[Rfam]
RNA sequence: AGAAAAAAAACCUCACCGCAAAUGCAGUGAGGCAGCAGUCCAUCUCUCCCUGUUCGGGAGCGGUGGCACGGAAUGCUCCUAUCAGACACGCCGUGCGCGAGUAGGAACUGCUUUUCAAUUAUGGGAGAGGAGAAACCGGAGGAAGAGCUUAUGGGGAAACGUAAGUCUUCUCCGCGG
Number, nucleotide and partner (000 for none) at each position: 001a000002g000003a000004a000005a000006a000007a000008a000009a000010a000011c032012c031013u030014c029015a028016c027017c000018g025019c024020a000021a000022a000023u000024g019025c018026a000027g016028u015029g014030a013031g012032g011033c000034a000035g000036c000037a000038g000039u125040c124041c123042a122043u121044c000045u000046c000047u000048c000049c000050c000051u000052g000053u000054u000055c000056g000057g000058g000059a000060g000061c000062g000063g000064u000065g000066g000067c000068a000069c000070g000071g000072a000073a000074u000075g000076c000077u000078c000079c000080u000081a000082u000083c000084a000085g000086a000087c000088a000089c000090g000091c000092c000093g000094u000095g000096c000097g000098c000099g000100a000101g000102u000103a000104g000105g000106a000107a000108c000109u000110g000111c000112u000113u000114u000115u000116c000117a000118a000119u000120u000121a043122u042123g041124g040125g039126a000127g000128a000129g000130g000131a000132g000133a000134a000135a000136c000137c174138g173139g172140a171141g000142g170143a169144a168145g167146a000147g166148c165149u164150u163151a162152u000153g000154g000155g000156g000157a000158a000159a000160c000161g000162u151163a150164a149165g148166u147167c145168u144169u143170c142171u140172c139173c138174g137175c000176g000177g000
RNA: ylbH leader